[Rfam]
RNA sequence: UGACGGGGGUCCGCACAAGCGGUGGAGCAUGUGGUUUAAUUCGAUGAUACGCGAAAAACCUCACCUAGGCUUGACAUGGAGUGGAAUCAUGUAGAGAUACAUGAGCCUUCGGGCCGCUUCACAGGUGCUGCAUGGUUGUCGUCAGCUCGUGUCGUGAGAUGUUGGGUUAAGUCCCGCAACGAGCGCAACCCUCACCUUAUGUUGCCAUCAUUCAGUUGGGCACUCGUAAGGAACUGCCGGUGACAAACCGGAGGAAGGCGGGGAUGACGUCAAAUCCUCAUGGCCUUUAUGUCUAGGGCAACACACGUGCUACAAUGGCCGGUACAAAGGGUAGCCAACUCGCGAGGGGGAGCUAAUCUCAAAAAUCCGGUCCCAGUUCGGAUUGGAGUCUGCAACUCGACUCCAUGAAGUCGGAAUCGCUAGUAAUCGCGGAUCAGCAUGCCGCGGUGAAUACGUUCCCGGACCUUGUACACACCGCCCGUCACACCACCUGAGUGGGGAGCACCCGAAGUGGUCUUUGCCAACCGCAAGGAAGCAGACUACUAAGGUGAAACUCGUGAAGGGGGUGAAGUCGUAACAAGG
Numbered sequence: 001u002g003a004c005g006g007g008g009g010u011c012c013g014c015a016c017a018a019g020c021g022g023u024g025g026a027g028c029a030u031g032u033g034g035u036u037u038a039a040u041u042c043g044a045u046g047a048u049a050c051g052c053g054a055a056a057a058a059c060c061u062c063a064c065c066u067a068g069g070c071u072u073g074a075c076a077u078g079g080a081g082u083g084g085a086a087u088c089a090u091g092u093a094g095a096g097a098u099a100c101a102u103g104a105g106c107c108u109u110c111g112g113g114c115c116g117c118u119u120c121a122c123a124g125g126u127g128c129u130g131c132a133u134g135g136u137u138g139u140c141g142u143c144a145g146c147u148c149g150u151g152u153c154g155u156g157a158g159a160u161g162u163u164g165g166g167u168u169a170a171g172u173c174c175c176g177c178a179a180c181g182a183g184c185g186c187a188a189c190c191c192u193c194a195c196c197u198u199a200u201g202u203u204g205c206c207a208u209c210a211u212u213c214a215g216u217u218g219g220g221c222a223c224u225c226g227u228a229a230g231g232a233a234c235u236g237c238c239g240g241u242g243a244c245a246a247a248c249c250g251g252a253g254g255a256a257g258g259c260g261g262g263g264a265u266g267a268c269g270u271c272a273a274a275u276c277c278u279c280a281u282g283g284c285c286u287u288u289a290u291g292u293c294u295a296g297g298g299c300a301a302c303a304c305a306c307g308u309g310c311u312a313c314a315a316u317g318g319c320c321g322g323u324a325c326a327a328a329g330g331g332u333a334g335c336c337a338a339c340u341c342g343c344g345a346g347g348g349g350g351a352g353c354u355a356a357u358c359u360c361a362a363a364a365a366u367c368c369g370g371u372c373c374c375a376g377u378u379c380g381g382a383u384u385g386g387a388g389u390c391u392g393c394a395a396c397u398c399g400a401c402u403c404c405a406u407g408a409a410g411u412c413g414g415a416a417u418c419g420c421u422a423g424u425a426a427u428c429g430c431g432g433a434u435c436a437g438c439a440u441g442c443c444g445c446g447g448u449g450a451a452u453a454c455g456u457u458c459c460c461g462g463a464c465c466u467u468g469u470a471c472a473c474a475c476c477g478c479c480c481g482u483c484a485c486a487c488c489a490c491c492u493g494a495g496u497g498g499g500g501a502g503c504a505c506c507c508g509a510a511g512u513g514g515u516c517u518u519u520g521c522c523a524a525c526c527g528c529a530a531g532g533a534a535g536c537a538g539a540c541u542a543c544u545a546a547g548g549u550g551a552a553a554c555u556c557g558u559g560a561a562g563g564g565g566g567u568g569a570a571g572u573c574g575u576a577a578c579a580a581g582g
Stems, first nucleotide, its partner, number of pairs: 001472002003469003007466007015456002019420005024313001026311008034302002040055004064297007077121002080118005087104007106113002124286002127284004133280002135275003138271001140269002145184006151160003163176004190263004195231007205220002209218002234254002237251005317372006329360003334353002339348003379410001384405007426448007475581001477578001480574002485568004490563003495558005503550004511543006519537003525532002
A member of the RNA family "Bacterial small subunit ribosomal RNA" from Leptospira interrogans, 582 nucleotides of a longer RNA. Rfam's curators put it in the seed alignment. The family's consensus secondary structure is taken from published work. The source organism's lineage runs through Bacteria, Spirochaetota, Leptospirales, Leptospira and Leptospira interrogans serovar Copenhageni.